[Rfam]
RNA sequence: UGAUGGCGAUGAUGAUUCUCCCACUUGGGUUCACCUGAUAAUCUAAAUAUGAGGGUGUUCAGUCACUACCUCAUCUGAAGCCAUCU
Numbered sequence: 001u002g003a004u005g006g007c008g009a010u011g012a013u014g015a016u017u018c019u020c021c022c023a024c025u026u027g028g029g030u031u032c033a034c035c036u037g038a039u040a041a042u043c044u045a046a047a048u049a050u051g052a053g054g055g056u057g058u059u060c061a062g063u064c065a066c067u068a069c070c071u072c073a074u075c076u077g078a079a080g081c082c083a084u085c086u
Base pairs, nucleotide, nucleotide: 002085003084004083005082006081007080